[Rfam]
RNA sequence: GGUACCAUGGCCGAGAGGCUAGGCAGAGGUCUGCAAAACCUCCCACAGCGGUUCGAAUCCGCUUGGUACCU
Dot-bracket structure: (((((((..(((.........))).(((((.......)))))....(((((.......)))))))))))).
RNA: tRNA
Organism: Siphonobacter aquaeclarae